The record is an 81-nucleotide RNA from Denticeps clupeoides, which matches "mir-26 microRNA precursor family" in Rfam. It scores 80 bits against the family's covariance model. Rfam links the family to the GO terms RISC complex and miRNA-mediated post-transcriptional gene silencing. Lineage of the source: Eukaryota > Metazoa > Actinopteri > Clupei > Denticeps. For this family Rfam cites "Identification of novel genes coding for small expressed RNAs" (Lagos-Quintana et al., Science, 2001).

[Rfam]
RNA sequence: UCAUGACCUUGUUCAAGUAAUCCAGGAUAGGCUGGGUGUUUCCUGUUUGGCCUAUUCAUGAUUACUUGCACUGGGUGGUGG
Numbered sequence: 001u002c003a004u005g006a007c008c009u010u011g012u013u014c015a016a017g018u019a020a021u022c023c024a025g026g027a028u029a030g031g032c033u034g035g036g037u038g039u040u041u042c043c044u045g046u047u048u049g050g051c052c053u054a055u056u057c058a059u060g061a062u063u064a065c066u067u068g069c070a071c072u073g074g075g076u077g078g079u080g081g
Base pairs, nucleotide, nucleotide: 002080003079004078007075008074009073011071012070014068015067016066017065018064019063020062021061022060025057026056027055028054029053030052031051032050033049